The family of this 185-nucleotide sequence from Auraticoccus monumenti is "Actinobacteria sRNA Ms_IGR-5". Lineage of the source: Bacteria > Bacillati > Actinomycetota > Actinomycetes > Auraticoccus.
Nucleotides: 185
Base pairs, nucleotide, nucleotide: 014057015056017054018053059093060092061091062090063089064088065087068085069084070083072080073079074078111179112178113177114176115175116174117173118172119171120170121169122168123167124166125165
Number, partner (000 for none) and nucleotide at each position: 001000a002000c003000a004000c005000g006000g007000a008000a009000g010000g011000g012000a013000g014057g015056u016000g017054g018053u019000u020000c021000g022000a023000u024000c025000a026000a027000u028000g029000a030000a031000u032000g033000a034000c035000a036000g037000u038000c039000g040000g041000a042000c043000a044000u045000g046000u047000g048000a049000g050000g051000u052000g053018g054017c055000g056015g057014c058000g059093g060092g061091c062090u063089g064088a065087u066000u067000c068085c069084c070083g071000c072080c073079u074078g075000a076000g077000c078074c079073g080072g081000c082000a083070c084069g085068g086000c087065g088064u089063c090062g091061g092060c093059c094000a095000a096000u097000c098000c099000a100000c101000c102000g103000u104000c105000g106000u107000c108000a109000c110000c111179c112178a113177g114176a115175c116174c117173c118172g119171c120170g121169a122168g123167c124166g125165c126000c127000g128000u129000c130000g131000u132000c133000c134000a135000a136000c137000g138000g139000c140000c141000g142000c143000a144000c145000c146000c147000u148000g149000c150000a151000g152000c153000g154000c155000a156000g157000c158000g159000u160000g161000c162000g163000a164000a165125g166124u167123g168122c169121u170120c171119g172118c173117g174116g175115g176114u177113c178112u179111g180000u181000c182000a183000c184000g185000u